[Rfam]
RNA sequence: CCCGCGACAGGACGGAAAGACCCCAUGGAGCUUUACUGCAGAUUGAUAUUGAGUACCUGUGAAGCAUGUACAGGAUAGGUAGGAGACUUUGACCUUGGGACGCUAGUUUCAAGUGAGUCGCUGUUGGGAUACUACCCUUGCUUCAUGGUUGCUCUAACCCACACGCAUAAUCGGCGUGGGAGACAGUGUCUGUCGGGCAGUUUGACUGGGGCGGUCGCCUCCUAAAGAGUAACGGAGGCGCCCAAAGGUUCCCUCAACAUGGUUGGAAAUCAUGUGUAGAGUGUAAAGGUAUAAGGGAGCUUGACUGCGAGAGCUACAACUCGAGCAGGUAGGAAACUAGGGCUUAGUGAUCCGGUGGUACCGCAUGGAAGGGCCAUCGCUCAACGGAUAAAAGCUACCCUGGGGAUAACAGGCUUAUCUCCCCCAAGAGUUCACAUCGACGGGGAGGUUUGGCACCUCGAUGUCGGCUCGUCGCAUCCUGGGGCUGUAGUCGGUCCCAAGGGUUGGGCUGUUCGCCCAUUAAAGCGGCACGCGAGCUGGGUUCAGAACGUCGUGAGACAGUUCGGUCCCUAUCCGUCGCGGGCGUA
Dot-bracket structure: ((((((((.(((.((......((((.(((((((.((((...((.((((..(((((.((((((((((.(.........(((((..(((......((((((((....))))))))...)))............)))))).)))))))))).)))))....((.(((((.......)))))))......)))).))....))))..((((.....))))((((((...........))))))(.((....((((((((.((((((.......))))))...))((......))....))))))....((((..(((......)))..)))).(((....))).))..........(((((((.((........))))))))).....)......)))))..))))))........(((.((((((((...((.......))...)))))))..))))..........(((((((((((..((.((((((......))))))...)).(((((.....))))).....)))))..)..)))).).....(((((((....))).))))....))..)))))))))))....
The family of this 587-nucleotide part of an RNA from Lactococcus garvieae is "Bacterial large subunit ribosomal RNA". The source organism's lineage runs through Bacteria, Bacillati, Bacillota, Lactobacillales and Lactococcus garvieae. Gene Ontology terms of the family: ribosome and structural constituent of ribosome.